A member of the RNA family "rpsB sRNA" from Xanthobacter sp. SG618, 92 nucleotides long. NCBI's taxonomy places the organism under Bacteria, Pseudomonadota, Alphaproteobacteria, Hyphomicrobiales, Xanthobacter.
RNA sequence: CGCACGCGGACACAGGCCAGAUCGGCCAUCCGGUGCCAUUCGCCAUUGGCGAAGGUACGUCCGCGGAGGCUCAACCGGAGAAUACCAAAGUG
Numbered sequence: 001c002g003c004a005c006g007c008g009g010a011c012a013c014a015g016g017c018c019a020g021a022u023c024g025g026c027c028a029u030c031c032g033g034u035g036c037c038a039u040u041c042g043c044c045a046u047u048g049g050c051g052a053a054g055g056u057a058c059g060u061c062c063g064c065g066g067a068g069g070c071u072c073a074a075c076c077g078g079a080g081a082a083u084a085c086c087a088a089a090g091u092g
Stems, first nucleotide, its partner, number of pairs: 001068001003066001005065007015027004035050004040045001